[Rfam]
RNA sequence: CUCAGCAUCUUACUGGGCAGCAUUGGAUGAUCCAUGCCGCUCUAAUACUGCCUGGUAAUGAUGAUGAA
Numbered sequence: 001c002u003c004a005g006c007a008u009c010u011u012a013c014u015g016g017g018c019a020g021c022a023u024u025g026g027a028u029g030a031u032c033c034a035u036g037c038c039g040c041u042c043u044a045a046u047a048c049u050g051c052c053u054g055g056u057a058a059u060g061a062u063g064a065u066g067a068a
Stems, first nucleotide, its partner, number of pairs: 002067003006063004010058011022046006
Rfam assigns this 68-nucleotide sequence to the family "mir-8/mir-141/mir-200 microRNA precursor family". It scores 66 bits against the family's covariance model. A reference for the family is Lagos-Quintana et al. (2001), "Identification of novel genes coding for small expressed RNAs", Science. The family has 164 seed sequences and 2,669 matches in Rfam 15.1.